[Rfam]
RNA sequence: GCUGCCUUGCGUGACUGGCGAGAAGGGGUGGAGCCAACCACCGUGGAGCGCGAGGCAAUCGCGCCGCUCGCCUGGGCACCCUUU
Numbered sequence: 001g002c003u004g005c006c007u008u009g010c011g012u013g014a015c016u017g018g019c020g021a022g023a024a025g026g027g028g029u030g031g032a033g034c035c036a037a038c039c040a041c042c043g044u045g046g047a048g049c050g051c052g053a054g055g056c057a058a059u060c061g062c063g064c065c066g067c068u069c070g071c072c073u074g075g076g077c078a079c080c081c082u083u084u
Stems, first nucleotide, its partner, number of pairs: 003057010015045001017072005028041004061079001063077003
Dot-bracket structure: ..((((((((((..(.[[[[[......((((......))))...)..))))))))))...(.(((..]]]]]..))).).....
RNA: ZMP/ZTP riboswitch aptamer (pfl RNA motif)
Organism: Parvibaculum lavamentivorans